Source information
Rfam assigns this 183-nucleotide RNA sequence from Uliginosibacterium sp. TH139 to the family "6S / SsrS RNA". From the family's description: E. coli 6S RNA was the first non coding RNA to be sequenced, but its function was unknown until recently. By type it is a non-coding RNA gene.
RNA sequence: UUUCCCCUGCGGUGUUCGUUUGAGCCUUAAGCUCCUUGAACCAAUGUCUACGCGACAUGGUUGUCGGCCCACCAAGCCGCUGUUGUGAGCGCCCCUUAUGCCGGGCGCACCUGAAGCGGCCGGGUAGAUGACCCCCUGAACCCAGGUUCAGGAAUACGGCUCGACGGCACAUGCGGGGGACCC
Number, nucleotide and partner (000 for none) at each position: 001u000002u000003u180004c179005c178006c177007c176008u175009g174010c173011g172012g170013u169014g168015u167016u000017c166018g165019u164020u000021u000022g000023a000024g000025c000026c000027u000028u000029a000030a000031g000032c000033u153034c152035c151036u000037u150038g149039a148040a147041c146042c145043a000044a000045u000046g000047u000048c000049u000050a000051c000052g000053c000054g000055a000056c000057a000058u000059g133060g132061u131062u000063g129064u128065c127066g000067g125068c124069c000070c123071a000072c000073c000074a000075a000076g120077c119078c118079g117080c116081u000082g000083u000084u000085g110086u109087g000088a000089g000090c107091g106092c105093c104094c103095c000096u000097u000098a000099u000100g000101c000102c000103g094104g093105g092106c091107g090108c000109a086110c085111c000112u000113g000114a000115a000116g080117c079118g078119g077120c076121c000122g000123g070124g068125u067126a000127g065128a064129u063130g000131a061132c060133c059134c000135c000136c000137u000138g000139a000140a000141c000142c000143c000144a000145g042146g041147u040148u039149c038150a037151g035152g034153a033154a000155u000156a000157c000158g000159g000160c000161u000162c000163g000164a019165c018166g017167g015168c014169a013170c012171a000172u011173g010174c009175g008176g007177g006178g005179g004180a003181c000182c000183c000